[Rfam]
RNA sequence: AUAGGACGCCUCUUAGAUGACAGGGUGUGAAGAGCCUACUGAGCUGGGUAGUAGUCUCCGGCCCCUGAAUGCGGCUAAUCCUAACCACGGAGCGUCCACCAGCAAUCCAGCUGGCAGGGCGUCGUAACGGGCAACUCUGUGGCGGAACCGACUACUUUGGGUGUCCGUGUUUCCUUUUGAUCCUAUUUUGGCUGCUUAUGGUGACAACGAUAAGUUGUUAUCAUAAAGCUCUUGGGUUGGCCACCUGGAA
Numbered sequence: 001a002u003a004g005g006a007c008g009c010c011u012c013u014u015a016g017a018u019g020a021c022a023g024g025g026u027g028u029g030a031a032g033a034g035c036c037u038a039c040u041g042a043g044c045u046g047g048g049u050a051g052u053a054g055u056c057u058c059c060g061g062c063c064c065c066u067g068a069a070u071g072c073g074g075c076u077a078a079u080c081c082u083a084a085c086c087a088c089g090g091a092g093c094g095u096c097c098a099c100c101a102g103c104a105a106u107c108c109a110g111c112u113g114g115c116a117g118g119g120c121g122u123c124g125u126a127a128c129g130g131g132c133a134a135c136u137c138u139g140u141g142g143c144g145g146a147a148c149c150g151a152c153u154a155c156u157u158u159g160g161g162u163g164u165c166c167g168u169g170u171u172u173c174c175u176u177u178u179g180a181u182c183c184u185a186u187u188u189u190g191g192c193u194g195c196u197u198a199u200g201g202u203g204a205c206a207a208c209g210a211u212a213a214g215u216u217g218u219u220a221u222c223a224u225a226a227a228g229c230u231c232u233u234g235g236g237u238u239g240g241c242c243a244c245c246u247g248g249a250a
Stems, first nucleotide, its partner, number of pairs: 004012002020026002034195002042193005051182001059167003063161003072150003079146003085142007093121004099114005122130003197225012
A member of the RNA family "Picornavirus internal ribosome entry site (IRES)" from Enterovirus geswini, 250 nucleotides long. Rfam's curators put it in the seed alignment. For this family Rfam cites "Structural and functional analysis of the 5' untranslated region of coxsackievirus B3 RNA: In vivo translational and infectivity studies of full-length mutants" (Liu et al., Virology, 1999). Rfam describes the family as follows. This family represents the Picornavirus internal ribosome entry site (IRES). IRES elements allow cap and end-independent translation of mRNA in the host cell. It has been found that La autoantigen (La) is required for Coxsackievirus B3 (CVB3) IRES-mediated translation, and it has been suggested that La may be required for the efficient translation of the viral RNA in the pancreas.